[Rfam]
RNA: Small nucleolar RNA Z39
Organism: Probosciger aterrimus
RNA sequence: GUGUGUGUGAUGUGAACAAAACAGCAUGAGAAACUGUGAUACUGGAAGCACUUUCUGAUGUA
Numbered sequence: 001g002u003g004u005g006u007g008u009g010a011u012g013u014g015a016a017c018a019a020a021a022c023a024g025c026a027u028g029a030g031a032a033a034c035u036g037u038g039a040u041a042c043u044g045g046a047a048g049c050a051c052u053u054u055c056u057g058a059u060g061u062a
Stems, first nucleotide, its partner, number of pairs: 002062004012054001015052001022044003026040002